[Rfam]
RNA sequence: GUCGCGCUUCCAUUCACUCGGAUCGUCCGGCACGUACCUGCCGGUGAAGGAGAAGACA
Numbered sequence: 001g002u003c004g005c006g007c008u009u010c011c012a013u014u015c016a017c018u019c020g021g022a023u024c025g026u027c028c029g030g031c032a033c034g035u036a037c038c039u040g041c042c043g044g045u046g047a048a049g050g051a052g053a054a055g056a057c058a
Base pairs, nucleotide, nucleotide: 010050011049013048014047015046016045027044028043029042030041031040032039
This 58-nucleotide RNA sequence from Labedella populi belongs to the Rfam family "msiK RNA". It is annotated as a cis-regulatory element. The organism belongs to Labedella, within Bacteria. The match comes from Rfam's covariance-model search (58 bits).